[Rfam]
RNA sequence: AUAAACAUUUCAUCACAUUUCGCCAGGAUAACGCAAAUGUUGCGAUCGAAGUGUUGCGAGCAAGCGAAACUCCUAAUCGGCUCGACGUUUCACUUGGGCAUUUCUCUAAAGGAGAAAUGUUCAGCGAGA
Numbered sequence: 001a002u003a004a005a006c007a008u009u010u011c012a013u014c015a016c017a018u019u020u021c022g023c024c025a026g027g028a029u030a031a032c033g034c035a036a037a038u039g040u041u042g043c044g045a046u047c048g049a050a051g052u053g054u055u056g057c058g059a060g061c062a063a064g065c066g067a068a069a070c071u072c073c074u075a076a077u078c079g080g081c082u083c084g085a086c087g088u089u090u091c092a093c094u095u096g097g098g099c100a101u102u103u104c105u106c107u108a109a110a111g112g113a114g115a116a117a118u119g120u121u122c123a124g125c126g127a128g129a
Base pairs, nucleotide, nucleotide: 006053007052008051009050010049011048016039017038018037019036021033022032088129089128090127091126093124097121098120099119100118101117102116104114105113
Dot-bracket structure: .....((((((....((((.((.........))..))))........))))))..................................((((.(...((((((.((.......)).))))))..).))))
Shown here is a 129-nucleotide RNA sequence from Drosophila navojoa, a member of the family "Hairy RNA localisation element (HLE)". Rfam classes the family as a cis-regulatory element. NCBI's taxonomy places the organism under Eukaryota, Opisthokonta, Acalyptratae, Drosophila, mojavensis species complex. Rfam links the family to the GO term RNA localization. The literature on the family includes a 2003 paper in EMBO J by Bullock et al., "The Drosophila hairy RNA localization signal modulates the kinetics of cytoplasmic mRNA transport".